[Rfam]
RNA: MIR9563 microRNA precursor family
RNA sequence: GGAAUAUAAGAAUCCGUCUCUUAAUUUUUAACUAAAAAGCUAAGAACCGGUUCUUAAAACUCUUAUUUAAGAACCAGUUCUUAGUUUUUUUAGUUAAAAGUUAAGAGACGGGUUCC
Numbered sequence: 001g002g003a004a005u006a007u008a009a010g011a012a013u014c015c016g017u018c019u020c021u022u023a024a025u026u027u028u029u030a031a032c033u034a035a036a037a038a039g040c041u042a043a044g045a046a047c048c049g050g051u052u053c054u055u056a057a058a059a060c061u062c063u064u065a066u067u068u069a070a071g072a073a074c075c076a077g078u079u080c081u082u083a084g085u086u087u088u089u090u091u092a093g094u095u096a097a098a099a100g101u102u103a104a105g106a107g108a109c110g111g112g113u114u115c116c
Base pairs, nucleotide, nucleotide: 010115011114012113013112014111015110016109017108018107019106020105021104022103023102024101025100026099027098028097029096030095031094032093033092034091035090036089037088038087039086040084041083042082043081044080045079046078